[Rfam]
Nucleotides: 276
Base pairs, nucleotide, nucleotide: 006029007028008027013024034048037045085127086126087125090122094120096117099114100113101112102111103110135154136153139151160203161202162201163199164198165197210252211251212250213249214248216246217245220238221237223235261276262275263274264273265272
Number, partner (000 for none) and nucleotide at each position: 001000u002000g003000g004000c005000g006029c007028c008027c009000a010000a011000u012000a013024u014000g015000g016000g017000c018000u019000c020000a021000a022000g023000a024013a025000u026000g027008g028007g029006g030000a031000a032000c033000u034048c035000c036000a037045u038000g039000a040000g041000g042000g043000a044000c045037a046000c047000u048034g049000u050000u051000c052000g053000u054000g055000g056000g057000c058000c059000c060000a061000a062000a063000g064000u065000a066000g067000a068000a069000a070000a071000a072000a073000a074000g075000a076000a077000a078000a079000g080000a081000a082000a083000a084000u085127a086126g087125a088000g089000a090122c091000c092000c093000u094120g095000a096117c097000a098000a099114u100113g101112u102111g103110g104000a105000g106000c107000c108000u109000g110103c111102c112101a113100u114099g115000c116000u117096g118000c119000g120094c121000u122090g123000a124000a125087u126086c127085u128000c129000a130000g131000u132000a133000a134000g135154u136153g137000a138000a139151u140000a141000g142000c143000g144000a145000u146000u147000a148000u149000a150000g151139g152000a153136c154135a155000a156000g157000a158000a159000a160203u161202g162201a163199g164198c165197c166000a167000g168000c169000a170000u171000g172000a173000g174000a175000u176000u177000u178000u179000c180000g181000u182000u183000g184000a185000a186000a187000g188000u189000u190000u191000a192000g193000c194000a195000a196000a197165g198164g199163c200000u201162u202161u203160a204000a205000a206000g207000g208000c209000a210252c211251a212250a213249a214248g215000a216246g217245u218000a219000a220238a221237g222000g223235u224000c225000a226000a227000a228000a229000u230000u231000a232000a233000g234000c235223a236000a237221u238220u239000g240000u241000g242000u243000c244000a245217a246216u247000a248214u249213u250212u251211u252210g253000a254000u255000u256000u257000u258000a259000u260000a261276a262275a263274a264273g265272a266000a267000g268000u269000u270000u271000g272265u273264c274263u275262u276261u
Mason-Pfizer monkey virus packaging signal: a 276-nucleotide RNA sequence from Cavia porcellus. It scores 104 bits against the family's covariance model. Rfam classes the family as a cis-regulatory element. Rfam links the family to the GO term viral genome packaging. Rfam's curators write: This family represents a group of sequences that are related to the Mason-Pfizer monkey virus (MPMV) packaging signal. The packaging signal is located in the 5' UTR and is required for specific RNA encapsidation.